[Rfam]
Small nucleolar RNA SNORD10: a 141-nucleotide sequence from Megalops atlanticus.
A reference for the family is Huttenhofer et al. (2001), "RNomics: an experimental approach that identifies 201 candidates for novel, small, non-messenger RNAs in mouse", EMBO J.
The match comes from Rfam's covariance-model search (73 bits).
By type it is a C/D-box small nucleolar RNA.
The source organism's lineage runs through Eukaryota, Neopterygii, Elopomorpha, Megalopidae and Megalops.

RNA sequence: GUUUUGUGAUGAUCCCCCAUGCGUGUCAACUGAUCCCAGAAUCCCCUGCUGGUUCGGGCCGCCUGUUAGCGUUCUGUUAGCAGGUGUGCACGGGGCUUCAGGGCUCUGGGGCCAUGAUCAGAACCUAGUGUGGCUGAAAAC
Numbered sequence: 001g002u003u004u005u006g007u008g009a010u011g012a013u014c015c016c017c018c019a020u021g022c023g024u025g026u027c028a029a030c031u032g033a034u035c036c037c038a039g040a041a042u043c044c045c046c047u048g049c050u051g052g053u054u055c056g057g058g059c060c061g062c063c064u065g066u067u068a069g070c071g072u073u074c075u076g077u078u079a080g081c082a083g084g085u086g087u088g089c090a091c092g093g094g095g096c097u098u099c100a101g102g103g104c105u106c107u108g109g110g111g112c113c114a115u116g117a118u119c120a121g122a123a124c125c126u127a128g129u130g131u132g133g134c135u136g137a138a139a140a141c
Stems, first nucleotide, its partner, number of pairs: 001141004044103005051096001